Background
The family of this 138-nucleotide RNA from Bacterioplanoides sp. SCSIO 12839 is "Molybdenum/Tungsten riboswitch aptamer (Moco RNA motif)".
Nucleotides: 138
Base pairs, nucleotide, nucleotide: 006129011124012123013122014121015120016119019074020073021072022071025068026067027066028065029064035059036058037057038056079104080103081102082101083100084099085098087096088095089094105115106114
Number, partner (000 for none) and nucleotide at each position: 001000a002000a003000a004000c005000a006129c007000a008000g009000u010000a011124a012123a013122c014121g015120c016119c017000g018000a019074g020073c021072u022071u023000u024000u025068u026067u027066u028065c029064c030000u031000a032000a033000c034000g035059u036058c037057c038056u039000a040000c041000u042000c043000g044000c045000c046000u047000g048000a049000g050000g051000u052000g053000c054000u055000c056038a057037g058036g059035a060000a061000a062000a063000u064029g065028g066027a067026a068025a069000c070000u071022a072021a073020g074019c075000c076000g077000a078000u079104g080103g081102g082101u083100c084099a085098g086000c087096c088095g089094g090000g091000a092000a093000a094089c095088c096087g097000c098085c099084u100083g101082g102081c103080c104079u105115c106114c107000c108000g109000g110000g111000u112000u113000u114106g115105g116000a117000a118000a119016g120015g121014u122013g123012u124011u125000c126000c127000a128000u129006g130000a131000a132000a133000a134000g135000u136000u137000c138000u

NCBI's taxonomy places the organism under Bacteria, Pseudomonadati, Oceanospirillales, Oceanospirillaceae, Bacterioplanoides.